RNA sequence: CGAGGUGCCCUCUCGAACCGGUGGAAUAGAAGCGUCGUAACUCCUAUCCUCCCAGUUCAGAGGGCACUUUCUAUAUCGGCACGCCGCCACCCAUCAACAUUCAUCGGUGGAUCGAG
Number, nucleotide and partner (000 for none) at each position: 001c000002g070003a069004g068005g067006u066007g065008c064009c063010c062011u061012c060013u000014c000015g058016a057017a000018c055019c000020g053021g052022u000023g000024g049025a000026a047027u046028a000029g044030a000031a042032g041033c000034g000035u000036c000037g000038u000039a000040a000041c032042u031043c000044c029045u000046a027047u026048c000049c024050u000051c000052c021053c020054a000055g018056u000057u016058c015059a000060g012061a011062g010063g009064g008065c007066a006067c005068u004069u003070u002071c000072u000073a000074u000075a000076u000077c000078g000079g000080c000081a000082c000083g000084c000085c000086g000087c000088c000089a000090c000091c000092c000093a000094u000095c114096a000097a112098c000099a000100u111101u110102c109103a108104u000105c000106g000107g000108u103109g102110g101111a100112u097113c000114g095115a000116g000